[Rfam]
RNA sequence: CGGUCGGCAGUUCACCCAGGCAUCGCCGCUGCGAUUCAUCUCGCAGAGCUAAACCUGCUA
Numbered sequence: 001c002g003g004u005c006g007g008c009a010g011u012u013c014a015c016c017c018a019g020g021c022a023u024c025g026c027c028g029c030u031g032c033g034a035u036u037c038a039u040c041u042c043g044c045a046g047a048g049c050u051a052a053a054c055c056u057g058c059u060a
Base pairs, nucleotide, nucleotide: 002016003015004014029046030045031044032043033042034041